Shown here is a 126-nucleotide sequence from Streptomyces calvus, a member of the family "Streptomyces RNA 3920". Lineage of the source: Bacteria > Actinomycetota > Actinomycetes > Streptomycetaceae > Streptomyces. The pairing is the family consensus, mapped onto this sequence. The match comes from Rfam's covariance-model search (123 bits). Rfam describes the family as follows. Identified by deep sequencing of transcriptome at the end of exponential growth phase. Sequencing size consistent with northern blot size. Streptomyces specific. It is annotated as a small RNA. For this family Rfam cites "Deep sequencing-based identification of small non-coding RNAs in Streptomyces coelicolor" (Vockenhuber et al., RNA Biol, 2011).

[Rfam]
RNA sequence: GAUAGGUCGCUGUCGCUCCUGUGAUUGGACACUGACACUGAGUCAACUAGCCUUCUUGAAGCGGUUCUUCGCGCGCGGAACCGAGGACGGUCCGAGCCACGAGGGGGGAGGCUCGGACCGUCCGCA
Numbered sequence: 001g002a003u004a005g006g007u008c009g010c011u012g013u014c015g016c017u018c019c020u021g022u023g024a025u026u027g028g029a030c031a032c033u034g035a036c037a038c039u040g041a042g043u044c045a046a047c048u049a050g051c052c053u054u055c056u057u058g059a060a061g062c063g064g065u066u067c068u069u070c071g072c073g074c075g076c077g078g079a080a081c082c083g084a085g086g087a088c089g090g091u092c093c094g095a096g097c098c099a100c101g102a103g104g105g106g107g108g109a110g111g112c113u114c115g116g117a118c119c120g121u122c123c124g125c126a
Stems, first nucleotide, its partner, number of pairs: 001014005015051003021032003033045004061072004076083002086122013100107001